[Rfam]
RNA sequence: GUAAGGACGACCUUACCGCUUCAUACCACAGGGGACGGCCCCA
Numbered sequence: 001g002u003a004a005g006g007a008c009g010a011c012c013u014u015a016c017c018g019c020u021u022c023a024u025a026c027c028a029c030a031g032g033g034g035a036c037g038g039c040c041c042c043a
Stems, first nucleotide, its partner, number of pairs: 001016006031042004
RNA: Guanidine-II riboswitch aptamer (mini-ykkC)
Organism: Paraferrimonas sedimenticola